[Rfam]
RNA sequence: AGUCCCGCCAGCUACCACGUGGAGUGUAUACAUUCUGUCUUCACGUUGGUCGUUCUACCGGGCCGAGAGCC
Numbered sequence: 001a002g003u004c005c006c007g008c009c010a011g012c013u014a015c016c017a018c019g020u021g022g023a024g025u026g027u028a029u030a031c032a033u034u035c036u037g038u039c040u041u042c043a044c045g046u047u048g049g050u051c052g053u054u055c056u057a058c059c060g061g062g063c064c065g066a067g068a069g070c071c
Stems, first nucleotide, its partner, number of pairs: 002064001004062004014050003018045007
Rfam assigns this 71-nucleotide sequence from Trypanosoma congolense to the family "Trypanosomatid snoRNA TB9Cs4H2". For this family Rfam cites "A genome-wide analysis of C/D and H/ACA-like small nucleolar RNAs in Trypanosoma brucei reveals a trypanosome-specific pattern of rRNA modification" (Liang et al., RNA, 2005). Gene Ontology terms of the family: RNA processing and nucleolus. The base pairs follow the family's consensus structure, which was predicted with WAR. The organism belongs to Trypanosoma congolense, within Eukaryota. The match comes from Rfam's covariance-model search (83 bits).